[Rfam]
RNA sequence: CCAGGGAUUGAACUCAGGUCCUUGCGCUUGCAAGGCAGGCAGUGGAACCACUGAGCUAAAUCCCCGGCCCAAUAAAUUCUCUUUUGCAACCCAGAACUCAUUGUUCAGUAUGAGUCUGAUACACAUAAGAAGGAAUAUU
Numbered sequence: 001c002c003a004g005g006g007a008u009u010g011a012a013c014u015c016a017g018g019u020c021c022u023u024g025c026g027c028u029u030g031c032a033a034g035g036c037a038g039g040c041a042g043u044g045g046a047a048c049c050a051c052u053g054a055g056c057u058a059a060a061u062c063c064c065c066g067g068c069c070c071a072a073u074a075a076a077u078u079c080u081c082u083u084u085u086g087c088a089a090c091c092c093a094g095a096a097c098u099c100a101u102u103g104u105u106c107a108g109u110a111u112g113a114g115u116c117u118g119a120u121a122c123a124c125a126u127a128a129g130a131a132g133g134a135a136u137a138u139u
Base pairs, nucleotide, nucleotide: 001067002066004064005063007061010056013055014054015053016052076136077135078134079133080132082130083129084128085127086126092118093117094116095115097114098113099112100111101110

The family of this 139-nucleotide RNA from Heterocephalus glaber is "Small nucleolar RNA SNORA40".
The base pairs follow the family's consensus structure, which was predicted with RNAalifold.
Its family is annotated with RNA processing and nucleolus in the Gene Ontology.
On this family, see Ofengand and Bakin, J Mol Biol 1997: "Mapping to nucleotide resolution of pseudouridine residues in large subunit ribosomal RNAs from representative eukaryotes, prokaryotes, archaebacteria, mitochondria and chloroplasts".